[Rfam]
RNA: Tryptophan operon leader
RNA sequence: AUCCGUUGGUGGCAAAACUCCCUUAAAUGGGCGGUUUCUUCCUGCGCGUGAAUUAAUAACGCAACACCAGAUCAAGACCCGCCAUGAAGCGGGUUUUUUUAU
Numbered sequence: 001a002u003c004c005g006u007u008g009g010u011g012g013c014a015a016a017a018c019u020c021c022c023u024u025a026a027a028u029g030g031g032c033g034g035u036u037u038c039u040u041c042c043u044g045c046g047c048g049u050g051a052a053u054u055a056a057u058a059a060c061g062c063a064a065c066a067c068c069a070g071a072u073c074a075a076g077a078c079c080c081g082c083c084a085u086g087a088a089g090c091g092g093g094u095u096u097u098u099u100u101a102u
Base pairs, nucleotide, nucleotide: 009045010044011041012040014037015036016035018033020031021030022029076095077094078093079092080091081090082089
Dot-bracket structure: ........((((.(((.(.(((......))).).)))..))..))..............................(((((((......))))))).......